RNA sequence: UGACGUUCUCGGGGCGGGGUGAAAGUCCCCACCGGCGGUAUUUGCGCCCGGUCAUCAGGCCGGGGUGCAUCAGCCCGCGAGCGCCCGCCAGGCCUUUGGGCAUGGCGGGGACAGCAGAUCCGGUGUGAUUCCGGAGCCGACGGUUACAGUCCGGAUGAUAGAGAACGAUG
Numbered sequence: 001u002g003a004c005g006u007u008c009u010c011g012g013g014g015c016g017g018g019g020u021g022a023a024a025g026u027c028c029c030c031a032c033c034g035g036c037g038g039u040a041u042u043u044g045c046g047c048c049c050g051g052u053c054a055u056c057a058g059g060c061c062g063g064g065g066u067g068c069a070u071c072a073g074c075c076c077g078c079g080a081g082c083g084c085c086c087g088c089c090a091g092g093c094c095u096u097u098g099g100g101c102a103u104g105g106c107g108g109g110g111a112c113a114g115c116a117g118a119u120c121c122g123g124u125g126u127g128a129u130u131c132c133g134g135a136g137c138c139g140a141c142g143g144u145u146a147c148a149g150u151c152c153g154g155a156u157g158a159u160a161g162a163g164a165a166c167g168a169u170g
Base pairs, nucleotide, nucleotide: 004167005166006165007164008163009162010161017029018028019027031150032149033139034138035078036077037076038075073137074136081115082114119135120134121133122132123131141153142152143151
RNA: FMN riboswitch aptamer (RFN element)